[Rfam]
RNA sequence: AAGAUUUUUGAUUUUGGUAUCGGUAUCACUCAUCGACAUUUGGUCUUCUCCUAAAUUACCUCGGUUGGGUUCACCGAGGUUUUU
Numbered sequence: 001a002a003g004a005u006u007u008u009u010g011a012u013u014u015u016g017g018u019a020u021c022g023g024u025a026u027c028a029c030u031c032a033u034c035g036a037c038a039u040u041u042g043g044u045c046u047u048c049u050c051c052u053a054a055a056u057u058a059c060c061u062c063g064g065u066u067g068g069g070u071u072c073a074c075c076g077a078g079g080u081u082u083u084u
Stems, first nucleotide, its partner, number of pairs: 058080008
RNA: Photosynthesis regulatory RNA1
Organism: Nostocales cyanobacterium HT-58-2